[Rfam]
RNA sequence: AAGCUGUGAAGAAAAACCUUGCGCCCGCCGUGAUGGUUGGGUCCAUCACAAACGUCUGAUCUGUUCGGACGACAAAGAAGCGCAUCUGAGCUU
Number, nucleotide and partner (000 for none) at each position: 001a093002a092003g091004c090005u000006g000007u000008g000009a000010a000011g000012a000013a000014a000015a000016a000017c000018c000019u000020u000021g000022c000023g000024c000025c000026c000027g000028c000029c000030g000031u000032g000033a000034u000035g000036g000037u000038u000039g000040g000041g000042u000043c000044c000045a000046u000047c000048a000049c000050a000051a000052a000053c000054g000055u000056c000057u000058g000059a000060u000061c000062u000063g000064u000065u000066c000067g000068g000069a000070c000071g000072a000073c000074a000075a000076a000077g000078a000079a000080g000081c000082g000083c000084a000085u000086c000087u000088g000089a000090g004091c003092u002093u001
RNA: small nucleolar RNA snoR114
Organism: Actinidia chinensis